[Rfam]
RNA sequence: UUGGAUAUGAAUGAAUUAUGUUUGGAUACAUUUAUUUAAAAUUGAUUCUUAUGAGUUGAUGUUGUUUGGAUAA
Numbered sequence: 001u002u003g004g005a006u007a008u009g010a011a012u013g014a015a016u017u018a019u020g021u022u023u024g025g026a027u028a029c030a031u032u033u034a035u036u037u038a039a040a041a042u043u044g045a046u047u048c049u050u051a052u053g054a055g056u057u058g059a060u061g062u063u064g065u066u067u068g069g070a071u072a073a
Stems, first nucleotide, its partner, number of pairs: 011060002014057004020052002024048004029044002032041002
Shown here is a 73-nucleotide RNA from Medicago truncatula, a member of the family "MIR5272 microRNA precursor family". Gene Ontology terms of the family: miRNA-mediated post-transcriptional gene silencing and RISC complex. The family's consensus secondary structure was predicted with RNAalifold. The organism belongs to Medicago, within Eukaryota.